[Rfam]
RNA: Guanidine-I riboswitch aptamer
RNA sequence: CAAAAUUCUGUCUAGGGUUCCGUUGACAUCGCGUCAAGUCUGGUCCAAGAGACGGGGAUACGUAAGUCGUUCGCGCAAGCGGCGGAUGACCGUAUAUACACGGAAGGAUAAAAGCCUGGGAGAU
Numbered sequence: 001c002a003a004a005a006u007u008c009u010g011u012c013u014a015g016g017g018u019u020c021c022g023u024u025g026a027c028a029u030c031g032c033g034u035c036a037a038g039u040c041u042g043g044u045c046c047a048a049g050a051g052a053c054g055g056g057g058a059u060a061c062g063u064a065a066g067u068c069g070u071u072c073g074c075g076c077a078a079g080c081g082g083c084g085g086a087u088g089a090c091c092g093u094a095u096a097u098a099c100a101c102g103g104a105a106g107g108a109u110a111a112a113a114g115c116c117u118g119g120g121a122g123a124u
Stems, first nucleotide, its partner, number of pairs: 007056006015046002020043002022040001023037005057097001058095005099119001101122001105117003